[Rfam]
RNA sequence: UCAUCUUGACCUGUCUGGCACCUGUCUUUACACCUGUCAGUGACAGAACACGCCCGAAAGUUCAAGAGAGA
Numbered sequence: 001u002c003a004u005c006u007u008g009a010c011c012u013g014u015c016u017g018g019c020a021c022c023u024g025u026c027u028u029u030a031c032a033c034c035u036g037u038c039a040g041u042g043a044c045a046g047a048a049c050a051c052g053c054c055c056g057a058a059a060g061u062u063c064a065a066g067a068g069a070g071a
Stems, first nucleotide, its partner, number of pairs: 004067006017054003022046005
This 71-nucleotide sequence from Leishmania major belongs to the Rfam family "Trypanosomatid snoRNA TB11Cs4H1". By type it is an H/ACA-box small nucleolar RNA. The source organism's lineage runs through Eukaryota, Euglenozoa, Leishmania, Leishmania major species complex and Leishmania major. The base pairs follow the family's consensus structure, which was predicted with WAR.